A member of the RNA family "mir-551 microRNA precursor family" from Hemibagrus wyckioides, 72 nucleotides long. A search with the family's covariance model found it, with a score of 57 bits. Rfam links the family to the GO terms RISC complex and miRNA-mediated post-transcriptional gene silencing. The literature on the family includes a 2008 paper in Gene by Shao et al., "Identification of novel chicken microRNAs and analysis of their genomic organization". Lineage of the source: Eukaryota > Vertebrata > Gnathostomata > Neopterygii > Hemibagrus.

RNA sequence: GAACUUUAGAGAUCAAGUGUGGGUGUGGCCUGGGAUGUUAUCAUGGCGACCCAUCCUUGGUUUCUAGGGAUC
Numbered sequence: 001g002a003a004c005u006u007u008a009g010a011g012a013u014c015a016a017g018u019g020u021g022g023g024u025g026u027g028g029c030c031u032g033g034g035a036u037g038u039u040a041u042c043a044u045g046g047c048g049a050c051c052c053a054u055c056c057u058u059g060g061u062u063u064c065u066a067g068g069g070a071u072c
Stems, first nucleotide, its partner, number of pairs: 002071001004069004009064006016057002021052004028047003

The family's consensus secondary structure was predicted with RNAalifold.